This 97-nucleotide sequence from Cephalotus follicularis belongs to the Rfam family "MIR403 microRNA precursor family". The family has 13 seed sequences and 215 matches in Rfam 15.1. NCBI's taxonomy places the organism under Eukaryota, Viridiplantae, Magnoliopsida, Cephalotaceae, Cephalotus. The match comes from Rfam's covariance-model search (74 bits). On this family, see Mica et al., BMC Genomics 2009: "High throughput approaches reveal splicing of primary microRNA transcripts and tissue specific expression of mature microRNAs in Vitis vinifera". Gene Ontology terms of the family: miRNA-mediated post-transcriptional gene silencing and RISC complex.

[Rfam]
RNA sequence: GCAUAUUUCAGGUAUGUGCGUGAAUCUAAUAAAGACCACCGUAUGUAUUUAUGCAUGGUUUUCAUGUUAGAUUCACGCACAAACUCGUAAUCUGUCU
Numbered sequence: 001g002c003a004u005a006u007u008u009c010a011g012g013u014a015u016g017u018g019c020g021u022g023a024a025u026c027u028a029a030u031a032a033a034g035a036c037c038a039c040c041g042u043a044u045g046u047a048u049u050u051a052u053g054c055a056u057g058g059u060u061u062u063c064a065u066g067u068u069a070g071a072u073u074c075a076c077g078c079a080c081a082a083a084c085u086c087g088u089a090a091u092c093u094g095u096c097u
Stems, first nucleotide, its partner, number of pairs: 001095003005091003011085003015081012028068003